[Rfam]
RNA sequence: GCCAAAAAUACAUACUUCUUUACAUUCCAUAAUAUUGUAUCCUCAUAUGGGUACAUAAAGAAGUAUGUGCUCUGGAC
Numbered sequence: 001g002c003c004a005a006a007a008a009u010a011c012a013u014a015c016u017u018c019u020u021u022a023c024a025u026u027c028c029a030u031a032a033u034a035u036u037g038u039a040u041c042c043u044c045a046u047a048u049g050g051g052u053a054c055a056u057a058a059a060g061a062a063g064u065a066u067g068u069g070c071u072c073u074g075g076a077c
Stems, first nucleotide, its partner, number of pairs: 007071001009069014027050005
Rfam assigns this 77-nucleotide RNA from Salvator merianae to the family "mir-1 microRNA precursor family". The family's consensus secondary structure was predicted with RNAalifold. The source organism's lineage runs through Eukaryota, Amniota, Bifurcata, Teiidae and Salvator.